[Rfam]
RNA: Makes More Granules Regulator RNA (mmgR)
Organism: Inquilinus limosus
RNA sequence: UCGUAACGCACUUCUUGGGCGUUUCCUCCCUAAACUCGGGCCGCAGCGAUGCGGCCUGUUUUCUUUUGGGGA
Numbered sequence: 001u002c003g004u005a006a007c008g009c010a011c012u013u014c015u016u017g018g019g020c021g022u023u024u025c026c027u028c029c030c031u032a033a034a035c036u037c038g039g040g041c042c043g044c045a046g047c048g049a050u051g052c053g054g055c056c057u058g059u060u061u062u063c064u065u066u067u068g069g070g071g072a
Stems, first nucleotide, its partner, number of pairs: 008020002011017001038057008